RNA: Actinobacteria sRNA Ms_IGR-5
Organism: Cryptosporangium aurantiacum
RNA sequence: ACACGAGAGGGGAGGUGGUCCAAAGUUGAAUACUUAUCGGACUCGUGAGGUGGCUACUUCCUAGCCGCCCAUCGGACUCCGGUCCGAACCGUCGCCUGAGACGUAGACGGCGGUAAGGCAAACCAAGGUAACCACCGACCCCUCGGGCUGCCGGCCUCGUCCGACCGGCCCCGUGCGUAAGCACGGGAACCAGCCCGAGGGGCUUUUUUU
Number, nucleotide and partner (000 for none) at each position: 001a000002c000003a000004c000005g000006a000007g000008a000009g000010g000011g000012g000013a000014g058015g057016u056017g055018g054019u053020c000021c000022a000023a000024a000025g000026u000027u000028g000029a000030a000031u000032a000033c000034u000035u000036a000037u000038c000039g000040g000041a000042c000043u000044c000045g000046u000047g000048a000049g000050g000051u000052g000053g019054c018055u017056a016057c015058u014059u000060c118061c117062u116063a000064g114065c113066c000067g111068c110069c109070c000071a000072u000073c000074g000075g000076a000077c000078u000079c000080c000081g000082g000083u000084c000085c000086g000087a000088a000089c000090c000091g000092u000093c000094g000095c000096c000097u000098g000099a000100g000101a000102c000103g000104u000105a000106g000107a000108c000109g069110g068111c067112g000113g065114u064115a000116a062117g061118g060119c000120a000121a000122a000123c000124c000125a000126a000127g000128g000129u000130a000131a000132c000133c000134a000135c000136c000137g204138a000139c202140c201141c200142c199143u198144c197145g196146g195147g194148c193149u192150g000151c168152c167153g166154g165155c000156c163157u000158c000159g000160u000161c000162c000163g156164a000165c154166c153167g152168g151169c000170c000171c000172c000173g000174u000175g000176c000177g000178u000179a000180a000181g000182c000183a000184c000185g000186g000187g000188a000189a000190c000191c000192a149193g148194c147195c146196c145197g144198a143199g142200g141201g140202g139203c000204u137205u000206u000207u000208u000209u000210u000